This 116-nucleotide RNA sequence from Mangrovibacter sp. MFB070 belongs to the Rfam family "tp2". A reference for the family is Rivas et al. (2001), "Computational identification of noncoding RNAs in E. coli by comparative genomics", Curr Biol. Taxonomically the source falls in Mangrovibacter (Bacteria, Pseudomonadota, Enterobacterales, Enterobacteriaceae). It is annotated as a small RNA.

RNA sequence: GGUAUUCCUUAUCUUUUAAUCGUUGAUUGUCUGGAACCUGUCCCAUUGCAUUCUCAGCCUGGGGUAAAAACACAAUAAGACAGGUUCUGCGUUUAGUUGCCGCGCUCUAUGAUUGG
Numbered sequence: 001g002g003u004a005u006u007c008c009u010u011a012u013c014u015u016u017u018a019a020u021c022g023u024u025g026a027u028u029g030u031c032u033g034g035a036a037c038c039u040g041u042c043c044c045a046u047u048g049c050a051u052u053c054u055c056a057g058c059c060u061g062g063g064g065u066a067a068a069a070a071c072a073c074a075a076u077a078a079g080a081c082a083g084g085u086u087c088u089g090c091g092u093u094u095a096g097u098u099g100c101c102g103c104g105c106u107c108u109a110u111g112a113u114u115g116g
Stems, first nucleotide, its partner, number of pairs: 001101004021091003033088010045076004051070002054067001